The record is a 169-nucleotide sequence from Thermanaeromonas toyohensis, which matches "Group II catalytic intron D1-D4-3" in Rfam. Rfam links the family to the GO term Group II intron splicing. The match comes from Rfam's covariance-model search (140 bits). Pairs were carried over by alignment from the consensus structure. About the family: Group II introns are found in rRNA, tRNA and mRNA of organelles in fungi, plants and protists, and also in mRNA in bacteria.
[Rfam]
RNA sequence: UCCAUCGUGAGGUGGAAUCCGAAGGAAGCCGGAGGCAAAGCCACGGCCCGAUGAACAAGAACCCCAUAAGAGGCUAAGCCGUCCGGAUGAGCUGGCAUAACACAGCGAAAUCCCAGGCAGACAUAAGGACGGCGGAGUAUAUGGGGCGGGCGCGGGGUAGGCCUGUGCU
Numbered sequence: 001u002c003c004a005u006c007g008u009g010a011g012g013u014g015g016a017a018u019c020c021g022a023a024g025g026a027a028g029c030c031g032g033a034g035g036c037a038a039a040g041c042c043a044c045g046g047c048c049c050g051a052u053g054a055a056c057a058a059g060a061a062c063c064c065c066a067u068a069a070g071a072g073g074c075u076a077a078g079c080c081g082u083c084c085g086g087a088u089g090a091g092c093u094g095g096c097a098u099a100a101c102a103c104a105g106c107g108a109a110a111u112c113c114c115a116g117g118c119a120g121a122c123a124u125a126a127g128g129a130c131g132g133c134g135g136a137g138u139a140u141a142u143g144g145g146g147c148g149g150g151c152g153c154g155g156g157g158u159a160g161g162c163c164u165g166u167g168c169u
Stems, first nucleotide, its partner, number of pairs: 001016006028169001030167002035162002040158003044154002046151005062146006073138003078133006085113004091106004